[Rfam]
RNA sequence: AUACUUACCUGGUGCCGGGGCCUCGUUGGUCAUUAAGGACGAGCCCACAGGGCGAGGCGCGGGCAUUGCACCGCGCUCGCGUUGACCCCUGCCACUAACCCAAAUUGGGGCAGAUUGGGCAUGCAAAUUGCUUAAAUCCGGUUCAACGCAAGAGAGGGCGCCACCGCC
Numbered sequence: 001a002u003a004c005u006u007a008c009c010u011g012g013u014g015c016c017g018g019g020g021c022c023u024c025g026u027u028g029g030u031c032a033u034u035a036a037g038g039a040c041g042a043g044c045c046c047a048c049a050g051g052g053c054g055a056g057g058c059g060c061g062g063g064c065a066u067u068g069c070a071c072c073g074c075g076c077u078c079g080c081g082u083u084g085a086c087c088c089c090u091g092c093c094a095c096u097a098a099c100c101c102a103a104a105u106u107g108g109g110g111c112a113g114a115u116u117g118g119g120c121a122u123g124c125a126a127a128u129u130g131c132u133u134a135a136a137u138c139c140g141g142u143u144c145a146a147c148g149c150a151a152g153a154g155a156g157g158g159c160g161c162c163a164c165c166g167c168c
Base pairs, nucleotide, nucleotide: 012122013121014120015119018046019045020044021043023042024041025040026039027038049090050089051088052087054086056083057082058081060079061078062077063076064075092117094115095113099108100107139166140165141164142163
RNA: U1 spliceosomal RNA
Organism: Haemaphysalis longicornis